A member of the RNA family "DUF3800-IX RNA", 69 nucleotides long.
RNA sequence: AAGCCAGUCCCGAACUGUCACCGGAUGGUGUGCGUGUCUAGGACAACUAGAAUAGGGGCUGGUUUCGGC
Numbered sequence: 001a002a003g004c005c006a007g008u009c010c011c012g013a014a015c016u017g018u019c020a021c022c023g024g025a026u027g028g029u030g031u032g033c034g035u036g037u038c039u040a041g042g043a044c045a046a047c048u049a050g051a052a053u054a055g056g057g058g059c060u061g062g063u064u065u066c067g068g069c
Base pairs, nucleotide, nucleotide: 001065002064003063004062005061006060007059008058009057010056011055016034017033018032019030020029021028022027037051038050039049040048
Dot-bracket structure: (((((((((((....(((((((....)))).)))..((((.......))))...)))))))))))....
Description
Pairs were carried over by alignment from the consensus structure, which is taken from published work. About the family: Actinobacteria, Firmicutes (1 example), Nitrospirae, Proteobacteria, Verrucomicrobia (1 example).